About this RNA:
This 282-nucleotide RNA from Betacoronavirus rousetti belongs to the Rfam family "Betacoronavirus 3'UTR". Gene Ontology term of the family: viral RNA genome replication. Rfam classes the family as a cis-regulatory element. The base pairs follow the family's consensus structure. The 3' UTR of betacoronaviruses is approximately 300-500 nucleotides long. The most 5' structure is the bulged stem-loop (BSL), starting downstream of the N gene stop codon and is essential for viral replication. It is predicted to be conserved among betacoronaviruses. Downstream to the BSL lies the hypervariable bulged-stemloop region (HVR), containing a triple helix junction. The family is grouped with related families in Rfam's "Coronavirus 3' UTR". The organism belongs to Betacoronavirus rousetti, within Viruses.

Nucleotides: 282
Base pairs, nucleotide, nucleotide: 035081037079038078043075044074045073050068051067054063055062056061095280096279097278098277099276100275101274102132103131104130105129106128107127108126109125110124111123134262135261136260137259138258139257141255142254145246146245147244148243149242155238169221170220171219172218173217174216175215176214190198191197192196201208202207266273267272
Number, partner (000 for none) and nucleotide at each position: 001000u002000u003000g004000a005000g006000c007000g008000a009000a010000g011000a012000c013000c014000g015000u016000g017000a018000u019000u020000g021000g022000c023000c024000u025000u026000u027000g028000c029000a030000u031000a032000u033000u034000a035081a036000g037079u038078g039000u040000g041000a042000c043075u044074u045073a046000g047000u048000u049000a050068g051067a052000g053000a054063g055062a056061c057000c058000a059000c060000g061056g062055u063054u064000u065000a066000a067051u068050c069000g070000c071000u072000g073045u074044g075043g076000c077000c078038u079037a080000c081035u082000c083000u084000u085000a086000u087000a088000c089000a090000g091000a092000a093000u094000g095280g096279a097278a098277u099276c100275c101274u102132a103131g104130u105129g106128u107127a108126c109125a110124g111123u112000g113000g114000u115000a116000u117000a118000a119000g120000u121000a122000a123111g124110c125109u126108g127107u128106g129105c130104a131103u132102u133000c134262g135261c136260u137259a138258u139257g140000u141255u142254u143000a144000g145246g146245u147244u148243u149242a150000g151000a152000a153000u154000g155238u156000a157000g158000u159000u160000u161000a162000g163000u164000g165000c166000u167000a168000g169221c170220u171219g172218a173217u174216u175215a176214g177000a178000g179000u180000g181000u182000g183000u184000u185000a186000a187000a188000g189000a190198c191197u192196u193000g194000u195000a196192g197191a198190g199000c200000g201208c202207c203000u204000u205000a206000g207202g208201g209000a210000a211000g212000a213000g214176c215175u216174a217173a218172u219171c220170a221169g222000u223000a224000a225000u226000a227000c228000a229000u230000u231000a232000u233000a234000c235000a236000a237000a238155a239000u240000u241000u242149u243148a244147a245146g246145c247000a248000a249000c250000c251000c252000c253000u254142a255141a256000u257139c258138a259137u260136a261135g262134u263000a264000u265000g266273c267272u268000u269000u270000a271000u272267a273266g274101a275100g276099g277098a278097u279096u280095u281000g282000c